[Rfam]
Small nucleolar RNA SNORA31: a 134-nucleotide sequence from Jaculus jaculus.
The family's RNA type in Rfam is H/ACA-box small nucleolar RNA.
About the family: ACA31 (SNORA31) belongs to the H/ACA class of snoRNAs which are thought to guide the sites of modification of uridines to pseudouridines.
Rfam 15.1 lists 2,094 matches to the family in 626 species.

RNA sequence: CUCAUCUAUUUGACAGACCUGAAGCAGUUAUUGUCUGCUAUCAAGGUUUCCAAGACAGAUACAAGGAAAAACGUAUCCUCACACUUUCUGUCUGUCUCAUAGUGGCAGCCAAGAUUGAACAGAGGAAUACAAAA
Numbered sequence: 001c002u003c004a005u006c007u008a009u010u011u012g013a014c015a016g017a018c019c020u021g022a023a024g025c026a027g028u029u030a031u032u033g034u035c036u037g038c039u040a041u042c043a044a045g046g047u048u049u050c051c052a053a054g055a056c057a058g059a060u061a062c063a064a065g066g067a068a069a070a071a072c073g074u075a076u077c078c079u080c081a082c083a084c085u086u087u088c089u090g091u092c093u094g095u096c097u098c099a100u101a102g103u104g105g106c107a108g109c110c111a112a113g114a115u116u117g118a119a120c121a122g123a124g125g126a127a128u129a130c131a132a133a134a
Stems, first nucleotide, its partner, number of pairs: 004060004011052002015049005023039005076126005084117001087114003092108005